This 73-nucleotide RNA sequence from Rotaria socialis belongs to the Rfam family "mir-8/mir-141/mir-200 microRNA precursor family". The family is grouped with related families in Rfam's "mir-8 microRNA precursor clan".
[Rfam]
RNA sequence: AAUGUCAUCUUACCAAACAGCAUUAGUUCGAAUAUAUUUCUAUUUGCUAAUACUGUCCGGUAAAGAUGGCCUA
Numbered sequence: 001a002a003u004g005u006c007a008u009c010u011u012a013c014c015a016a017a018c019a020g021c022a023u024u025a026g027u028u029c030g031a032a033u034a035u036a037u038u039u040c041u042a043u044u045u046g047c048u049a050a051u052a053c054u055g056u057c058c059g060g061u062a063a064a065g066a067u068g069g070c071c072u073a
Base pairs, nucleotide, nucleotide: 002072004070005069006068007067008066009065010063011062012061013060014059017056018055019054020053022051023050024049025048026047027046